[Rfam]
RNA sequence: UCCCGUAUCUGAAAGUGACUGCAGGCUGCCUGUGCCUUGGUCAUUGGUAGGGCAGGGAGAGGAGUCACCGAGAAAAGUUCCCGUGUUUGAAGGGUCCAGCCAUCCUUUCCAAACCCUGGAGCUUUCCCACA
Numbered sequence: 001u002c003c004c005g006u007a008u009c010u011g012a013a014a015g016u017g018a019c020u021g022c023a024g025g026c027u028g029c030c031u032g033u034g035c036c037u038u039g040g041u042c043a044u045u046g047g048u049a050g051g052g053c054a055g056g057g058a059g060a061g062g063a064g065u066c067a068c069c070g071a072g073a074a075a076a077g078u079u080c081c082c083g084u085g086u087u088u089g090a091a092g093g094g095u096c097c098a099g100c101c102a103u104c105c106u107u108u109c110c111a112a113a114c115c116c117u118g119g120a121g122c123u124u125u126c127c128c129a130c131a
Stems, first nucleotide, its partner, number of pairs: 001057003005053002008050001014045008023037004070126004085114005090108005